Vibrio RNA AS9: a 104-nucleotide RNA from Photobacterium jeanii. The match comes from Rfam's covariance-model search (72 bits). It is annotated as an antisense RNA. The family's consensus secondary structure was predicted with RNAfold.
RNA sequence: UUGCUGACAACGCUUUUGCGUUAGGGUCAAACAAAUCAAACCACGACCAUAAGUCGCCAUGAAGUUGAUCGCUUCUGGUGUCACCUUUUCAGCGGCAAUGAUCA
Dot-bracket structure: ..(.((((.((.((........)).)).......((....(...)...))..)))).).......(((((((..((((.(.....).).)))..))...)))))